[Rfam]
RNA sequence: AUACAACGUUAGGGGUGCUCCAGAUACGGAGCUGAGAUUACACCCUUGAACCUGAGAUGUUUAAUAACAGCGUAGGCAAACGGUAAAACUAAAUU
Numbered sequence: 001a002u003a004c005a006a007c008g009u010u011a012g013g014g015g016u017g018c019u020c021c022a023g024a025u026a027c028g029g030a031g032c033u034g035a036g037a038u039u040a041c042a043c044c045c046u047u048g049a050a051c052c053u054g055a056g057a058u059g060u061u062u063a064a065u066a067a068c069a070g071c072g073u074a075g076g077c078a079a080a081c082g083g084u085a086a087a088a089c090u091a092a093a094u095u
Base pairs, nucleotide, nucleotide: 007082008081009080010079011046012045013044014043016040017032018031019030020029021028051076052075053074054073058069059068060067
The record is a 95-nucleotide sequence from Bacteroides coprosuis, which matches "TPP riboswitch aptamer (THI element)" in Rfam. Taxonomically the source falls in Bacteroides coprosuis (Bacteria, Bacteroidota, Bacteroidales, Bacteroidaceae). A search with the family's covariance model found it, with a score of 60 bits.